[Rfam]
A member of the RNA family "L31-Actinobacteria ribosomal protein leader" from Amycolatopsis sp. SID8362, 44 nucleotides long. The family's RNA type in Rfam is cis-regulatory leader. The family's consensus secondary structure is taken from published work. The family is grouped with related families in Rfam's "Ribosomal Protein L31 Leader clan". NCBI's taxonomy places the organism under Bacteria, Bacillati, Actinomycetes, Pseudonocardiales, Amycolatopsis.
RNA sequence: CCGGCGCCGGUUCACCCCGCGAGAACGACUGGGGACCCGGAGCC
Dot-bracket structure: ..(((.((((....(((((..........)))))..)))).)))